[Rfam]
RNA: Purine riboswitch aptamer
RNA sequence: AAAAAUUGAUAUCGAAUCACUCAUAUAAUCCUUGGAAUAUGGCUAGGGAGUUUCUACCAGGUGACCGUAAAUCACCUGACUAUGAGUGAAAGUGUACCUAGG
Number, nucleotide and partner (000 for none) at each position: 001a000002a000003a000004a000005a000006u000007u000008g000009a000010u000011a000012u000013c000014g000015a000016a000017u000018c088019a087020c086021u085022c084023a083024u082025a081026u000027a000028a000029u049030c048031c047032u046033u045034g044035g043036a000037a000038u000039a000040u000041g000042g000043c035044u034045a033046g032047g031048g030049a029050g000051u000052u000053u000054c000055u000056a000057c000058c078059a077060g076061g075062u074063g073064a072065c000066c000067g000068u000069a000070a000071a000072u064073c063074a062075c061076c060077u059078g058079a000080c000081u025082a024083u023084g022085a021086g020087u019088g018089a000090a000091a000092g000093u000094g000095u000096a000097c000098c000099u000100a000101g000102g000